This 108-nucleotide sequence from Desulfotruncus arcticus belongs to the Rfam family "Glycine riboswitch aptamer". The organism belongs to Desulfotruncus arcticus, within Bacteria.

[Rfam]
RNA sequence: AUGAUGUUUGUGGGAGAGACCUUUAUUUAGAAGGCGCCGAAGGAGCAAAAGGUAAACAGAGCUGAGUUUAACCUUGAAACUUUCAGGCAAAAGUACUAUAAACGGACG
Numbered sequence: 001a002u003g004a005u006g007u008u009u010g011u012g013g014g015a016g017a018g019a020c021c022u023u024u025a026u027u028u029a030g031a032a033g034g035c036g037c038c039g040a041a042g043g044a045g046c047a048a049a050a051g052g053u054a055a056a057c058a059g060a061g062c063u064g065a066g067u068u069u070a071a072c073c074u075u076g077a078a079a080c081u082u083u084c085a086g087g088c089a090a091a092a093g094u095a096c097u098a099u100a101a102a103c104g105g106a107c108g
Base pairs, nucleotide, nucleotide: 006103007102008101009100010099011098012097013096020034021033022032023031036088037087038086039084040083043082044081045080049075050074051073052072053071